[Rfam]
RNA sequence: CUGUUAAGGGAUGACAUGAUAAACAAAGUGUCAUAUCAUCAAGUCUAACCACUUGACACGUCAUUAUCAUAUUAUCAGCUUCAAUGACGUGGCAAUAACGUAUCAGUGAUUAGGUUUGAUGAUGUGACACUAUGUAUGUUACAUCAUCAUUUAACAGAA
Numbered sequence: 001c002u003g004u005u006a007a008g009g010g011a012u013g014a015c016a017u018g019a020u021a022a023a024c025a026a027a028g029u030g031u032c033a034u035a036u037c038a039u040c041a042a043g044u045c046u047a048a049c050c051a052c053u054u055g056a057c058a059c060g061u062c063a064u065u066a067u068c069a070u071a072u073u074a075u076c077a078g079c080u081u082c083a084a085u086g087a088c089g090u091g092g093c094a095a096u097a098a099c100g101u102a103u104c105a106g107u108g109a110u111u112a113g114g115u116u117u118g119a120u121g122a123u124g125u126g127a128c129a130c131u132a133u134g135u136a137u138g139u140u141a142c143a144u145c146a147u148c149a150u151u152u153a154a155c156a157g158a159a
Stems, first nucleotide, its partner, number of pairs: 001157008010148005017141005023135003027131020048110001050108003055104002058101002072087004
The record is a 159-nucleotide RNA from Glycine soja, which matches "MIR4371 microRNA precursor family" in Rfam. Gene Ontology terms of the family: RISC complex and miRNA-mediated post-transcriptional gene silencing. Rfam 15.1 lists 321 matches to the family in 4 species. The organism belongs to Glycine subgen. Soja, within Eukaryota. The match comes from Rfam's covariance-model search (116 bits). The base pairs follow the family's consensus structure, which was predicted with RNAalifold.